[Rfam]
RNA: Fluoride riboswitch aptamer (crcB RNA motif)
RNA sequence: GCUGUGGGUGGCGAUGGAUCUCCGCCGAGACACCCCCGGGAUGGCUGAACCGCCUCAUAGUCCGGGGCUGAUGGUUCCUUCCCGGGG
Numbered sequence: 001g002c003u004g005u006g007g008g009u010g011g012c013g014a015u016g017g018a019u020c021u022c023c024g025c026c027g028a029g030a031c032a033c034c035c036c037c038g039g040g041a042u043g044g045c046u047g048a049a050c051c052g053c054c055u056c057a058u059a060g061u062c063c064g065g066g067g068c069u070g071a072u073g074g075u076u077c078c079u080u081c082c083c084g085g086g087g
Base pairs, nucleotide, nucleotide: 010026011025012024013023016078017077018076020074021073052068053067054066055065